[Rfam]
Source information: A member of the RNA family "Editing element of GABA-3 exon 9" from Notamacropus eugenii, 54 nucleotides long. Lineage of the source: Eukaryota > Bilateria > Diprotodontia > Macropodidae > Notamacropus. A reference for the family is Ohlson et al. (2007), "Editing modifies the GABA(A) receptor subunit alpha3", RNA.
RNA sequence: AAAGUGUCCUAUGCUACUGCCAUGGAUUGGUUCAUAGCUGUGUGCUUUGCCUUU
Numbered sequence: 001a002a003a004g005u006g007u008c009c010u011a012u013g014c015u016a017c018u019g020c021c022a023u024g025g026a027u028u029g030g031u032u033c034a035u036a037g038c039u040g041u042g043u044g045c046u047u048u049g050c051c052u053u054u
Stems, first nucleotide, its partner, number of pairs: 001054003006051001008049001011046001013045002015042003019038002022035005

The family's consensus secondary structure is taken from published work. By type it is a cis-regulatory element.